About this RNA: Shown here is a 102-nucleotide RNA from Brochothrix campestris, a member of the family "Purine riboswitch aptamer".
RNA sequence: GUUGUAUCAUAAACAAGCACUUAUAUAAUUGUCGUAAUAUGGACGACGCGUUUCUACCUGACUGCCGUAAACAGUCGGACUAUAAGUGAGGCAUAGGCAUGA
Dot-bracket structure: .................((((((((....((((((.......)))))).........(((((((.......)))))))..))))))))..............
The match comes from Rfam's covariance-model search (83 bits). Pairs were carried over by alignment from the consensus structure, which is taken from published work. Rfam describes the family as follows. Riboswitches are metabolite binding domains within certain messenger RNAs that serve as precision sensors for their corresponding targets.